[Rfam]
RNA sequence: UAGGAGUAGGAACCUGCGCGUUAAGUGCUGCCGGAACGGAAUGUGAACGGCAGACGAAGACAAGUGUCGCGGUGCAGGUGCCGCAUUCGCCUG
Numbered sequence: 001u002a003g004g005a006g007u008a009g010g011a012a013c014c015u016g017c018g019c020g021u022u023a024a025g026u027g028c029u030g031c032c033g034g035a036a037c038g039g040a041a042u043g044u045g046a047a048c049g050g051c052a053g054a055c056g057a058a059g060a061c062a063a064g065u066g067u068c069g070c071g072g073u074g075c076a077g078g079u080g081c082c083g084c085a086u087u088c089g090c091c092u093g
Stems, first nucleotide, its partner, number of pairs: 001093004009082002012079007019071003025055002028053006040087004059068003

A member of the RNA family "THF (Tetrahydrofolate) riboswitch aptamer" from Lacticaseibacillus paracasei, 93 nucleotides long. The sequence is in the family's curated seed alignment. Tetrahydrofolate (THF) riboswitch was first reported for Ames et al. as an RNA motif in 5' untranslated (5'-UTR)regions of folate transport and biosynthesis genes in Firmicutes genomes. Lineage of the source: Bacteria > Bacillota > Lactobacillales > Lactobacillaceae > Lacticaseibacillus paracasei. Pairs were carried over by alignment from the consensus structure, which is taken from published work.